[Rfam]
RNA sequence: GCCAACUUAGCUCAGCUGGCAGAGCAUCGGUAUCGUAAACCGAGGGUCGGCGGUUCGAGCCCGCCAGUUGGCA
Numbered sequence: 001g002c003c004a005a006c007u008u009a010g011c012u013c014a015g016c017u018g019g020c021a022g023a024g025c026a027u028c029g030g031u032a033u034c035g036u037a038a039a040c041c042g043a044g045g046g047u048c049g050g051c052g053g054u055u056c057g058a059g060c061c062c063g064c065c066a067g068u069u070g071g072c073a
Stems, first nucleotide, its partner, number of pairs: 001072007010025004027043005049065005
A member of the RNA family "tRNA" from Weissella soli, 73 nucleotides long. Its family is annotated with triplet codon-amino acid adaptor activity in the Gene Ontology. The base pairs follow the family's consensus structure, which is taken from published work. The organism belongs to Weissella, within Bacteria.